A member of the RNA family "Mesorhizobail RNA 15" from Mesorhizobium ciceri, 258 nucleotides long. From the family's description: Existence predicted via genome wide comparisons with 4 related strains. Analysed further by deep sequencing and Northern blot under various stress conditions. Widely expressed, accumulated heavily under most of the induction conditions, suggesting function in multiple cellular processes. It is one of the family's seed sequences. The family's consensus secondary structure was predicted with RNAfold. It is annotated as a small RNA. The source organism's lineage runs through Bacteria, Pseudomonadota, Hyphomicrobiales, Mesorhizobium and Mesorhizobium ciceri biovar biserrulae.

RNA sequence: GAUCGGUCGCAGACAAGGAAAGGGGGCCUCCGUGGCCCCUUUUCUCGUGCGGCGGCCUGCAUCCGUUCAGUUGCUGAUGGAAUCGCUGCCGCACUGCUUGAAGCAAAUCCCCGCCGAGCCGGAGGCCGGACCUGAUCCGGCAGCAAUCUCGCACUUGCACAAAUCCAUAUUGCACUGCAAUAUGGACUGGGCGGGAAUGCGAGCUGGGUUCGAAAUGUACCGUCGUACCCUUCGCAUACCUAUUGCGAGAGGAUCGGC
Number, nucleotide and partner (000 for none) at each position: 001g000002a000003u052004c051005g050006g000007u000008c047009g046010c000011a000012g044013a043014c000015a000016a000017g000018g000019a000020a042021a041022g040023g039024g038025g037026g036027c035028c034029u000030c000031c000032g000033u000034g028035g027036c026037c025038c024039c023040u022041u021042u020043u013044c012045u000046c009047g008048u000049g000050c005051g004052g003053c000054g000055g000056c000057c000058u000059g089060c088061a000062u000063c085064c000065g084066u000067u000068c080069a000070g078071u000072u000073g000074c000075u000076g000077a000078u070079g000080g068081a000082a000083u000084c065085g063086c000087u000088g060089c059090c000091g221092c000093a000094c000095u105096g104097c103098u102099u000100g000101a000102a098103g097104c096105a095106a000107a000108u130109c129110c128111c000112c124113g000114c000115c121116g120117a000118g000119c000120c116121g115122g000123a000124g112125g000126c000127c000128g110129g109130a108131c000132c000133u217134g216135a000136u214137c000138c212139g000140g000141c000142a209143g000144c207145a000146a000147u000148c203149u202150c201151g200152c199153a198154c195155u194156u193157g192158c191159a000160c189161a000162a000163a000164u186165c185166c184167a183168u182169a181170u180171u179172g178173c177174a000175c000176u000177g173178c172179a171180a170181u169182a168183u167184g166185g165186a164187c000188u000189g160190g000191g158192c157193g156194g155195g154196a000197a000198u153199g152200c151201g150202a149203g148204c000205u000206g000207g144208g000209u142210u000211c000212g138213a000214a136215a000216u134217g133218u000219a000220c000221c091222g258223u257224c256225g255226u000227a000228c252229c251230c000231u000232u248233c247234g246235c245236a244237u242238a000239c000240c000241u000242a237243u000244u236245g235246c234247g233248a232249g000250a000251g229252g228253a000254u000255c225256g224257g223258c222